[Rfam]
RNA sequence: CAUCUGUUACGGAUAGUCGAGCGGGAGAGUCAACCGCUAAGCCAGUAACCUUGCUUCGGCGUUCGCGCCAGCGGGAGAGGUGCCUGGUACGAAUCCGGGGGUUGUCAUCUUACUCGUGCAAGUAAUUCACGAUGCUAGGAGGCAUUAAGCAAUGAAGAUGACCCUUGAGGGAAGCAAUUCUGCAGAGACAUCUUCACCCUAGGAUGGCGUCACCAGAUUACACCUACCCGUUACAGGGAAGUUGGCUGCUUGGUUGGACAACUGUUCUU
Numbered sequence: 001c002a003u004c005u006g007u008u009a010c011g012g013a014u015a016g017u018c019g020a021g022c023g024g025g026a027g028a029g030u031c032a033a034c035c036g037c038u039a040a041g042c043c044a045g046u047a048a049c050c051u052u053g054c055u056u057c058g059g060c061g062u063u064c065g066c067g068c069c070a071g072c073g074g075g076a077g078a079g080g081u082g083c084c085u086g087g088u089a090c091g092a093a094u095c096c097g098g099g100g101g102u103u104g105u106c107a108u109c110u111u112a113c114u115c116g117u118g119c120a121a122g123u124a125a126u127u128c129a130c131g132a133u134g135c136u137a138g139g140a141g142g143c144a145u146u147a148a149g150c151a152a153u154g155a156a157g158a159u160g161a162c163c164c165u166u167g168a169g170g171g172a173a174g175c176a177a178u179u180c181u182g183c184a185g186a187g188a189c190a191u192c193u194u195c196a197c198c199c200u201a202g203g204a205u206g207g208c209g210u211c212a213c214c215a216g217a218u219u220a221c222a223c224c225u226a227c228c229c230g231u232u233a234c235a236g237g238g239a240a241g242u243u244g245g246c247u248g249c250u251u252g253g254u255u256g257g258a259c260a261a262c263u264g265u266u267c268u269u
Stems, first nucleotide, its partner, number of pairs: 002014003019267006030257007040247007049238003056071001058069004072230002075228001078225005084216005089210003093205004098200004103144001105142002109139004114132005120127002145149001153196007164187003171180003
RNA: Fungal signal recognition particle RNA